[Rfam]
RNA sequence: AAUGCACCCGGACGAUGUCUUCACCGGCCGUCCGGUGCUCACAGGUCGGUGGGACUUUCGUCCGUUUGCAGA
Numbered sequence: 001a002a003u004g005c006a007c008c009c010g011g012a013c014g015a016u017g018u019c020u021u022c023a024c025c026g027g028c029c030g031u032c033c034g035g036u037g038c039u040c041a042c043a044g045g046u047c048g049g050u051g052g053g054a055c056u057u058u059c060g061u062c063c064g065u066u067u068g069c070a071g072a
Stems, first nucleotide, its partner, number of pairs: 003070004009064007017055004022051002025048005